The record is a 118-nucleotide sequence from Bacillus sp. J14TS2, which matches "pan motif" in Rfam.
Taxonomically the source falls in Bacillus (Bacteria, Bacillati, Bacillota, Caryophanales).
The family's consensus secondary structure is taken from published work.

RNA sequence: UGGGCAGUAUCUAAACGAACUGCACCUACAAAUAUAAUGAUUUUGGAUUUAGCUCCAGUAACUAAAAGUGAGCUACUCUACAAUCUGCCUUGAUCCAUUUUGUGACUGGGACAGAGGA
Numbered sequence: 001u002g003g004g005c006a007g008u009a010u011c012u013a014a015a016c017g018a019a020c021u022g023c024a025c026c027u028a029c030a031a032a033u034a035u036a037a038u039g040a041u042u043u044u045g046g047a048u049u050u051a052g053c054u055c056c057a058g059u060a061a062c063u064a065a066a067a068g069u070g071a072g073c074u075a076c077u078c079u080a081c082a083a084u085c086u087g088c089c090u091u092g093a094u095c096c097a098u099u100u101u102g103u104g105a106c107u108g109g110g111a112c113a114g115a116g117g118a
Stems, first nucleotide, its partner, number of pairs: 002026002004023005010018002085114003088110003092106001094105002

It is annotated as a cis-regulatory element.